[Rfam]
RNA sequence: UGGGUUCGUCCCCAUCCCCCUGGGACGACGAACCCCGGAAGGCCCCGCUGUCCCCCCAGCGGGGCCUUCCUCUU
Numbered sequence: 001u002g003g004g005u006u007c008g009u010c011c012c013c014a015u016c017c018c019c020c021u022g023g024g025a026c027g028a029c030g031a032a033c034c035c036c037g038g039a040a041g042g043c044c045c046c047g048c049u050g051u052c053c054c055c056c057c058a059g060c061g062g063g064g065c066c067u068u069c070c071u072c073u074u
Stems, first nucleotide, its partner, number of pairs: 002036002004033004008026005037070013
RNA: 6C RNA
Organism: Yimella sp. cx-51